Source information
The record is a 47-nucleotide RNA sequence from Mustela putorius, which matches "Histone 3' UTR stem-loop" in Rfam. NCBI's taxonomy places the organism under Eukaryota, Chordata, Tetrapoda, Laurasiatheria, Mustela putorius. Rfam 15.1 lists 44,596 matches to the family in 976 species. Pairs were carried over by alignment from the consensus structure, which is taken from published work. The match comes from Rfam's covariance-model search (40 bits).

RNA sequence: CAAAAGGCUCUUUUCAGAGCCACCCACCAUUUCUUGAAAGGGGUUGU
Numbered sequence: 001c002a003a004a005a006g007g008c009u010c011u012u013u014u015c016a017g018a019g020c021c022a023c024c025c026a027c028c029a030u031u032u033c034u035u036g037a038a039a040g041g042g043g044u045u046g047u
Stems, first nucleotide, its partner, number of pairs: 006021006
Dot-bracket structure: .....((((((....))))))..........................